[Rfam]
The family of this 70-nucleotide sequence from Yoonia vestfoldensis is "Singlet oxygen resistance RNA X". Lineage of the source: Bacteria > Pseudomonadati > Pseudomonadota > Paracoccaceae > Yoonia vestfoldensis. It scores 53 bits against the family's covariance model. A reference for the family is Peng et al. (2016), "Regulation of a polyamine transporter by the conserved 3' UTR-derived sRNA SorX confers resistance to singlet oxygen and organic hydroperoxides in Rhodobacter sphaeroides", RNA Biol. Rfam describes the family as follows. SorX (RSs2461)like SorY is a singlet oxygen induced sRNA that counteracts oxidative stress by targeting mRNA for a transporter in Rhodobacter. It also has an impact on resistance against organic hydroperoxides. It targets SD sequence of potA mRNA via an aSD sequence. Rfam links the family to the GO term response to photooxidative stress. The base pairs follow the family's consensus structure.

Nucleotides: 070
Base pairs, nucleotide, nucleotide: 006024008022009021010020045063046062047061048060049059050058051057
Number, partner (000 for none) and nucleotide at each position: 001000a002000u003000c004000a005000u006024g007000c008022g009021c010020g011000c012000u013000u014000g015000c016000g017000c018000a019000u020010c021009g022008c023000u024006c025000u026000c027000a028000c029000c030000u031000c032000c033000c034000u035000g036000u037000u038000g039000g040000a041000c042000u043000u044000c045063g046062c047061c048060g049059g050058g051057c052000c053000u054000c055000g056000u057051g058050c059049c060048c061047g062046g063045c064000u065000u066000u067000u068000u069000u070000u